RNA sequence: AGUCACGUCUAUGACUGUGAGUGUGGCUAAUUAAAAGUUAGUCACUGUUGCUGAUUGUUGGGAAGGUGUAGGUCUUCCCCUCUCUGGGGUUUUCCUGCAUAACGGGCAUCUCUUUUUGAGAUGCUC
Numbered sequence: 001a002g003u004c005a006c007g008u009c010u011a012u013g014a015c016u017g018u019g020a021g022u023g024u025g026g027c028u029a030a031u032u033a034a035a036a037g038u039u040a041g042u043c044a045c046u047g048u049u050g051c052u053g054a055u056u057g058u059u060g061g062g063a064a065g066g067u068g069u070a071g072g073u074c075u076u077c078c079c080c081u082c083u084c085u086g087g088g089g090u091u092u093u094c095c096u097g098c099a100u101a102a103c104g105g106g107c108a109u110c111u112c113u114u115u116u117u118g119a120g121a122u123g124c125u126c
Base pairs, nucleotide, nucleotide: 006066008064010062012060013059014058015057017055018054020052021051022050023045024044025043026042027041028040029039067099068098069097070096071095072094076089077088078087079086104126105125106124107123108122109121110120111119112118